[Rfam]
RNA: ACEA small nucleolar RNA U3
RNA sequence: UCGACUGUACUUGCACAGGAUCACUGCUACAGUGAGUCCUCUUGCAUACAUGUUAUGAAAAAGAGCUUCACAGCAUCUCUGAUUAUGUCGAUCUCUGCGCUGAUAAGGAAUUUGCUGGAGCAUGCUCCCAGCUUGAUGAAAUCUAUCAGCGCAGUCUUCUGAAGAGAU
Numbered sequence: 001u002c003g004a005c006u007g008u009a010c011u012u013g014c015a016c017a018g019g020a021u022c023a024c025u026g027c028u029a030c031a032g033u034g035a036g037u038c039c040u041c042u043u044g045c046a047u048a049c050a051u052g053u054u055a056u057g058a059a060a061a062a063g064a065g066c067u068u069c070a071c072a073g074c075a076u077c078u079c080u081g082a083u084u085a086u087g088u089c090g091a092u093c094u095c096u097g098c099g100c101u102g103a104u105a106a107g108g109a110a111u112u113u114g115c116u117g118g119a120g121c122a123u124g125c126u127c128c129c130a131g132c133u134u135g136a137u138g139a140a141a142u143c144u145a146u147c148a149g150c151g152c153a154g155u156c157u158u159c160u161g162a163a164g165a166g167a168u
Stems, first nucleotide, its partner, number of pairs: 003039001006035001008034004017028002020025001051075004056070004076167005095154010114132003118127003
Dot-bracket structure: ..(..(.((((.....((.(....).))..)))))...)...........((((.((((.......)))).))))(((((..............((((((((((.........(((.(((....)))..)))............))))))))))........))))).